[Rfam]
RNA sequence: CUCCAUACCUCGGGGGGCUGUAAAGCUGAGAUGCGAAUGAUCGCGGACCCGUUGAACCUGAACCGGUUAACACCGGCGGAGGGAAGGUCUGGACAUCUAUC
Dot-bracket structure: ......((((((((..(((....)))......((((....))))...)))).....(((...((((......))))...)))..)))).............
Numbered sequence: 001c002u003c004c005a006u007a008c009c010u011c012g013g014g015g016g017g018c019u020g021u022a023a024a025g026c027u028g029a030g031a032u033g034c035g036a037a038u039g040a041u042c043g044c045g046g047a048c049c050c051g052u053u054g055a056a057c058c059u060g061a062a063c064c065g066g067u068u069a070a071c072a073c074c075g076g077c078g079g080a081g082g083g084a085a086g087g088u089c090u091g092g093a094c095a096u097c098u099a100u101c
Stems, first nucleotide, its partner, number of pairs: 007088004011051004017026003033044004057082003063076004
The family of this 101-nucleotide RNA sequence from Sulfitobacter sp. SK012 is "TPP riboswitch aptamer (THI element)".
Vitamin B(1) in its active form thiamin pyrophosphate (TPP) is an essential coenzyme that is synthesised by coupling of pyrimidine and thiazole moieties in bacteria.
A search with the family's covariance model found it, with a score of 73 bits.
The base pairs follow the family's consensus structure, which is taken from published work.